[Rfam]
RNA sequence: AGAACACACAUUAAUUAUCCUUGGGGUCAUGGAAUAAACAAAAACAAGUUAGCAAACCCUAGAAUGGUUCUAAAACGAUUACUAACCUAUGGCUCUGAUAUUAGUUGAAGGGAAAAACUC
Numbered sequence: 001a002g003a004a005c006a007c008a009c010a011u012u013a014a015u016u017a018u019c020c021u022u023g024g025g026g027u028c029a030u031g032g033a034a035u036a037a038a039c040a041a042a043a044a045c046a047a048g049u050u051a052g053c054a055a056a057c058c059c060u061a062g063a064a065u066g067g068u069u070c071u072a073a074a075a076c077g078a079u080u081a082c083u084a085a086c087c088u089a090u091g092g093c094u095c096u097g098a099u100a101u102u103a104g105u106u107g108a109a110g111g112g113a114a115a116a117a118c119u120c
Base pairs, nucleotide, nucleotide: 009110011108012107013106014105015104016103022097023096024095025094026093027092028091029090030089031088032087042069043068045066046065049062050061051060052059
RNA: MIR845_2 microRNA precursor family
Organism: Vitis rotundifolia